[Rfam]
RNA sequence: AAUAUUACCCUUGCACAAGCACCAACUUGAGUUUAGAAAACAGUAAGUGCUAUUUGUUGGGGUAGUAUU
Numbered sequence: 001a002a003u004a005u006u007a008c009c010c011u012u013g014c015a016c017a018a019g020c021a022c023c024a025a026c027u028u029g030a031g032u033u034u035a036g037a038a039a040a041c042a043g044u045a046a047g048u049g050c051u052a053u054u055u056g057u058u059g060g061g062g063u064a065g066u067a068u069u
Stems, first nucleotide, its partner, number of pairs: 004066008013057003017053001018051005025044003

miR-430 microRNA precursor family: a 69-nucleotide sequence from Hippoglossus hippoglossus. Its family is annotated with RISC complex and miRNA-mediated post-transcriptional gene silencing in the Gene Ontology. Lineage of the source: Eukaryota > Craniata > Actinopteri > Neopterygii > Hippoglossus. For this family Rfam cites "MicroRNAs regulate brain morphogenesis in zebrafish" (Giraldez et al., Science, 2005).